[Rfam]
RNA: tRNA
Organism: Ptilonorhynchus violaceus
RNA sequence: GCCUGGCUAGCUCAGUCAAUAGAGCAUGGGACUCUUAAUCCCAUGGUCAUGGGUUUGAGCCCCAUAUUGGGUG
Numbered sequence: 001g002c003c004u005g006g007c008u009a010g011c012u013c014a015g016u017c018a019a020u021a022g023a024g025c026a027u028g029g030g031a032c033u034c035u036u037a038a039u040c041c042c043a044u045g046g047u048c049a050u051g052g053g054u055u056u057g058a059g060c061c062c063c064a065u066a067u068u069g070g071g072u073g
Base pairs, nucleotide, nucleotide: 001072002071003070004069005068006067010025011024012023013022027043028042029041030040031039049065050064051063052062053061